Source information: Y RNA: a 98-nucleotide RNA from Myotis brandtii. The source organism's lineage runs through Eukaryota, Craniata, Teleostomi, Sarcopterygii and Myotis.
[Rfam]
RNA sequence: AGCUUGUCCGAGUGCAGUGUGUCCACAAUUAAUUGGUUACAGCCAGUUACAGAUUUCUUUGUUCCUUCUCCACUCCCAUUGCAUCACUUGACUGAAAA
Numbered sequence: 001a002g003c004u005u006g007u008c009c010g011a012g013u014g015c016a017g018u019g020u021g022u023c024c025a026c027a028a029u030u031a032a033u034u035g036g037u038u039a040c041a042g043c044c045a046g047u048u049a050c051a052g053a054u055u056u057c058u059u060u061g062u063u064c065c066u067u068c069u070c071c072a073c074u075c076c077c078a079u080u081g082c083a084u085c086a087c088u089u090g091a092c093u094g095a096a097a098a
Stems, first nucleotide, its partner, number of pairs: 004094001006092003010089002014085001016080004021075001027063003031059002

A search with the family's covariance model found it, with a score of 46 bits.